The family of this 393-nucleotide RNA from Verrucomicrobiales bacterium VVV1 is "Bacterial RNase P class A".

RNA sequence: GCCGCCUCCCGGACGGUCGCGGUCGCGUGUCAAAGCGCGGUCGAGGAAAGUCCGGACACCAUAGGGCAACGCGCCUCGUGAAAGCGGGGGACGGAAGUCGCGAGACGACCGGACGGAAAGUGCAGCAGAGAGUAAACCGCCGAUGGCCCGCAAGGGCACAGGUAAGGGUGAAAGGGUGGGGUAAGAGCCCACCGCGCGUCCGGGCAACCGGCGUGGCACGGCAAACCCCGCGUGGUGCAAGACAGAACAGGGGAAGGGCGGCCCGCCCGAUCAAGAUCUCCGGGUAUUAGUCGCACCCUGCGCAAGCAGGGUCCCGCGCAAGCGGGAAGAGAAAUGGCCGUCCAGUCCCGCUCGCGGGAUGGACAGAAUCCGGCUUACAGGGGGGCGGCACCC
Numbered sequence: 001g002c003c004g005c006c007u008c009c010c011g012g013a014c015g016g017u018c019g020c021g022g023u024c025g026c027g028u029g030u031c032a033a034a035g036c037g038c039g040g041u042c043g044a045g046g047a048a049a050g051u052c053c054g055g056a057c058a059c060c061a062u063a064g065g066g067c068a069a070c071g072c073g074c075c076u077c078g079u080g081a082a083a084g085c086g087g088g089g090g091a092c093g094g095a096a097g098u099c100g101c102g103a104g105a106c107g108a109c110c111g112g113a114c115g116g117a118a119a120g121u122g123c124a125g126c127a128g129a130g131a132g133u134a135a136a137c138c139g140c141c142g143a144u145g146g147c148c149c150g151c152a153a154g155g156g157c158a159c160a161g162g163u164a165a166g167g168g169u170g171a172a173a174g175g176g177u178g179g180g181g182u183a184a185g186a187g188c189c190c191a192c193c194g195c196g197c198g199u200c201c202g203g204g205c206a207a208c209c210g211g212c213g214u215g216g217c218a219c220g221g222c223a224a225a226c227c228c229c230g231c232g233u234g235g236u237g238c239a240a241g242a243c244a245g246a247a248c249a250g251g252g253g254a255a256g257g258g259c260g261g262c263c264c265g266c267c268c269g270a271u272c273a274a275g276a277u278c279u280c281c282g283g284g285u286a287u288u289a290g291u292c293g294c295a296c297c298c299u300g301c302g303c304a305a306g307c308a309g310g311g312u313c314c315c316g317c318g319c320a321a322g323c324g325g326g327a328a329g330a331g332a333a334a335u336g337g338c339c340g341u342c343c344a345g346u347c348c349c350g351c352u353c354g355c356g357g358g359a360u361g362g363a364c365a366g367a368a369u370c371c372g373g374c375u376u377a378c379a380g381g382g383g384g385g386c387g388g389c390a391c392c393c
Stems, first nucleotide, its partner, number of pairs: 001389010011378001012342007020043009048376003052373005057237004064268004069233005074089005090114001092111003115228002120226002122222002137167002139163003144160002146157004175193006194217001195215004200211004241292003244287001251281003255277001260272002263269001